A member of the RNA family "Bacteroidetes FopS (family of paralogous sRNAs)" from Dysgonomonas sp. HDW5A, 73 nucleotides long. Rfam links the family to the GO term sRNA-mediated gene silencing. The organism belongs to Dysgonomonas, within Bacteria. About the family: The RNA-binding protein RbpB and BTncRNA_FopS sRNA are involved in the post-transcription regulation of polysaccharide utilisation loci (PUL). FopS sRNAs function as post-transcriptional repressors by binding to the vicinity of the start codon of the first mRNA of target PUL polycistrons, typically corresponding to the cognate SusC homolog, impeding translation of the respective glycan transporter. The base pairs follow the family's consensus structure, which is taken from published work. The match comes from Rfam's covariance-model search (75 bits).
[Rfam]
RNA sequence: GUGUUUUUCAUAGUAUUAGAUUUAAGGUUAAUAAUGAAGAAUGGUUGUCGGGAUGACAAUCAUUUCUUUUUAU
Numbered sequence: 001g002u003g004u005u006u007u008u009c010a011u012a013g014u015a016u017u018a019g020a021u022u023u024a025a026g027g028u029u030a031a032u033a034a035u036g037a038a039g040a041a042u043g044g045u046u047g048u049c050g051g052g053a054u055g056a057c058a059a060u061c062a063u064u065u066c067u068u069u070u071u072a073u
Stems, first nucleotide, its partner, number of pairs: 043061007
Dot-bracket structure: ..........................................(((((((.....)))))))............
The family's RNA type in Rfam is small RNA.